The record is an 81-nucleotide sequence from Erinaceus europaeus, which matches "mir-105 microRNA precursor family" in Rfam. Rfam links the family to the GO terms RISC complex, miRNA-mediated post-transcriptional gene silencing and cellular_component.
RNA sequence: UGUUCGUCGUAGUCAAAUGCUCAGAUUCCUGUAGUGGCUUCUGAUGUACUACAGCUGUCUGAGCAUGUGCCACGGCGUCUG
Numbered sequence: 001u002g003u004u005c006g007u008c009g010u011a012g013u014c015a016a017a018u019g020c021u022c023a024g025a026u027u028c029c030u031g032u033a034g035u036g037g038c039u040u041c042u043g044a045u046g047u048a049c050u051a052c053a054g055c056u057g058u059c060u061g062a063g064c065a066u067g068u069g070c071c072a073c074g075g076c077g078u079c080u081g
Stems, first nucleotide, its partner, number of pairs: 005077006012070001014069002017066010028054001034052004039048001041046001
For this family Rfam cites "MicroRNA transcriptome in the newborn mouse ovaries determined by massive parallel sequencing" (Ahn et al., Mol Hum Reprod, 2010). The base pairs follow the family's consensus structure, which was predicted with RNAalifold. Taxonomically the source falls in Erinaceus (Eukaryota, Metazoa, Tetrapoda, Boreoeutheria).